[Rfam]
RNA sequence: CCCUGUCUCGAAAGUGACUGUGGAGUGUCCGUCUCCAGGUCAUUGAUGCACAGGAAGAGCAACUGAAAGUUUUUCCCGUGUUUGCUGGAUUGUUCCUGACAAACCCUGAAUCUUUCUCACA
Numbered sequence: 001c002c003c004u005g006u007c008u009c010g011a012a013a014g015u016g017a018c019u020g021u022g023g024a025g026u027g028u029c030c031g032u033c034u035c036c037a038g039g040u041c042a043u044u045g046a047u048g049c050a051c052a053g054g055a056a057g058a059g060c061a062a063c064u065g066a067a068a069g070u071u072u073u074u075c076c077c078g079u080g081u082u083u084g085c086u087g088g089a090u091u092g093u094u095c096c097u098g099a100c101a102a103a104c105c106c107u108g109a110a111u112c113u114u115u116c117u118c119a120c121a
Stems, first nucleotide, its partner, number of pairs: 002054005013044007022036004065116005080104005085098001087096003
RNA: Small nucleolar RNA SNORA71